[Rfam]
RNA sequence: AGUCUUGUAUAUCCAAUUUGAGAUUUCAGCCGACACAAGUUCAUCAGGACUGGUGAAACUCCUAAGAUAAGUGAAGCG
Dot-bracket structure: .((.((.(.((((..(...(((.(((((.(.....................).)))))))).)..)))).).)).)).
About this RNA:
The family of this 78-nucleotide sequence from Schistosoma japonicum is "mir-3492 microRNA precursor family". The match comes from Rfam's covariance-model search (51 bits). Pairs were carried over by alignment from the consensus structure, which was predicted with RNAalifold.